[Rfam]
RNA sequence: UAGAACAAUGUAGAUAAGGGAAGUCGGCAAAAUAGAUCCGUAACUUCGGGAUAAGGAUUGGCUCUAAGGGUUGGGUGCGUUGGGCCUUGGAAAGAAGCCUCUGGAGCAGGUCGGCACUAGCCUCACGGCCGGCGCCUUCCAGCACCGGGUGGUGGACGUCCUUGGCAGGUUUCGGCCGUCCGGCGCACAAUUAACAACCAACUUAGAACUGGUACGGACAAGGGGAAUCUGACUGUCUAAUUAAAACAUAGCAUUGCGAUGGCCAGAAAGUGGUGUUGACGCAAUGUGAUUUCUGCCCAGUGCUCUGAAUGUCAAAGUGAAGAAAUUCAACCAAGCGCGGGUAAACGGCGGGAGUAACUAUGACUCUCUUAAGGUAGCCAAAUGCCUCGUCAUCUAAUUAGUGACGCGCAUGAAUGGAUUAACGAGAUUCCCACUGUCCCUAUCUACUAUCUAGCGAAACCACAGCCAAGGGAACGGGCUUGGCAGA
Numbered sequence: 001u002a003g004a005a006c007a008a009u010g011u012a013g014a015u016a017a018g019g020g021a022a023g024u025c026g027g028c029a030a031a032a033u034a035g036a037u038c039c040g041u042a043a044c045u046u047c048g049g050g051a052u053a054a055g056g057a058u059u060g061g062c063u064c065u066a067a068g069g070g071u072u073g074g075g076u077g078c079g080u081u082g083g084g085c086c087u088u089g090g091a092a093a094g095a096a097g098c099c100u101c102u103g104g105a106g107c108a109g110g111u112c113g114g115c116a117c118u119a120g121c122c123u124c125a126c127g128g129c130c131g132g133c134g135c136c137u138u139c140c141a142g143c144a145c146c147g148g149g150u151g152g153u154g155g156a157c158g159u160c161c162u163u164g165g166c167a168g169g170u171u172u173c174g175g176c177c178g179u180c181c182g183g184c185g186c187a188c189a190a191u192u193a194a195c196a197a198c199c200a201a202c203u204u205a206g207a208a209c210u211g212g213u214a215c216g217g218a219c220a221a222g223g224g225g226a227a228u229c230u231g232a233c234u235g236u237c238u239a240a241u242u243a244a245a246a247c248a249u250a251g252c253a254u255u256g257c258g259a260u261g262g263c264c265a266g267a268a269a270g271u272g273g274u275g276u277u278g279a280c281g282c283a284a285u286g287u288g289a290u291u292u293c294u295g296c297c298c299a300g301u302g303c304u305c306u307g308a309a310u311g312u313c314a315a316a317g318u319g320a321a322g323a324a325a326u327u328c329a330a331c332c333a334a335g336c337g338c339g340g341g342u343a344a345a346c347g348g349c350g351g352g353a354g355u356a357a358c359u360a361u362g363a364c365u366c367u368c369u370u371a372a373g374g375u376a377g378c379c380a381a382a383u384g385c386c387u388c389g390u391c392a393u394c395u396a397a398u399u400a401g402u403g404a405c406g407c408g409c410a411u412g413a414a415u416g417g418a419u420u421a422a423c424g425a426g427a428u429u430c431c432c433a434c435u436g437u438c439c440c441u442a443u444c445u446a447c448u449a450u451c452u453a454g455c456g457a458a459a460c461c462a463c464a465g466c467c468a469a470g471g472g473a474a475c476g477g478g479c480u481u482g483g484c485a486g487a
Stems, first nucleotide, its partner, number of pairs: 001453004010447007018439003035059005044049001060210002063207006069199005075188009084166003089161003097153003101148004106143002109140002113136003117132002120129003211215001223432007230424002234248003251287008262274004291418003295349003300346002302342004307338001310337003318329004350368006369373001389405005466483005
A member of the RNA family "Eukaryotic large subunit ribosomal RNA" from Lasiodiplodia theobromae, 487 nucleotides of a longer RNA. It scores 3460 bits against the family's covariance model. Pairs were carried over by alignment from the consensus structure, which is taken from published work. The family is grouped with related families in Rfam's "LSU clan".